Background
Shown here is a 267-nucleotide RNA sequence from Sinosuthora webbiana, a member of the family "RNase MRP". It is annotated as a ribozyme. RNase MRP is an enzymatically active ribonucleoprotein with two distinct roles in eukaryotes. In mitochondria it plays a direct role in the initiation of mitochondrial DNA replication. In the nucleus it is involved in precursor rRNA processing, where it cleaves the internal transcribed spacer 1 between 18S and 5.8S rRNAs. Despite distinct functions, RNase MRP has been shown to be evolutionarily related to RNase P. Like eukaryotic RNase P, RNase MRP is not catalytically active without associated protein subunits. A reference for the family is Schmitt et al. (1993), "Secondary structure of RNase MRP RNA as predicted by phylogenetic comparison", FASEB J. A search with the family's covariance model found it, with a score of 66 bits. The family's consensus secondary structure is taken from published work.
[Rfam]
RNA sequence: GGGUGUUCUGAAGGCUUGCUUGCUAGGCCACACAUGGAGGACUUCAGAUUCUUAUGGGCCCCACGCCUGCCUAGGGUAAAGUCUUUGUACUGCUGGGAGAGAGUGCCCCAUGCUGCCGUGCCCCCGCCCGCCACCACCCUAUGCCAUCCUUCACCAAGACGCCUGCAGGCCAAGUGAGUAAGGGAGGGGCAGGCCCUCAUCACAGCCGCAUACAUGCAGGCAGUGUGGCAGGCGUGAGAACAGAACAGGGCUCACUCUCGGGCCUUG
Numbered sequence: 001g002g003g004u005g006u007u008c009u010g011a012a013g014g015c016u017u018g019c020u021u022g023c024u025a026g027g028c029c030a031c032a033c034a035u036g037g038a039g040g041a042c043u044u045c046a047g048a049u050u051c052u053u054a055u056g057g058g059c060c061c062c063a064c065g066c067c068u069g070c071c072u073a074g075g076g077u078a079a080a081g082u083c084u085u086u087g088u089a090c091u092g093c094u095g096g097g098a099g100a101g102a103g104u105g106c107c108c109c110a111u112g113c114u115g116c117c118g119u120g121c122c123c124c125c126g127c128c129c130g131c132c133a134c135c136a137c138c139c140u141a142u143g144c145c146a147u148c149c150u151u152c153a154c155c156a157a158g159a160c161g162c163c164u165g166c167a168g169g170c171c172a173a174g175u176g177a178g179u180a181a182g183g184g185a186g187g188g189g190c191a192g193g194c195c196c197u198c199a200u201c202a203c204a205g206c207c208g209c210a211u212a213c214a215u216g217c218a219g220g221c222a223g224u225g226u227g228g229c230a231g232g233c234g235u236g237a238g239a240a241c242a243g244a245a246c247a248g249g250g251c252u253c254a255c256u257c258u259c260g261g262g263c264c265u266u267g
Stems, first nucleotide, its partner, number of pairs: 003266001005264001007262005014221006023074006037062001039060002042057002080252002083250004095107002098104001118129001120127002130190003134186001139183002142180001151177004161170003224236004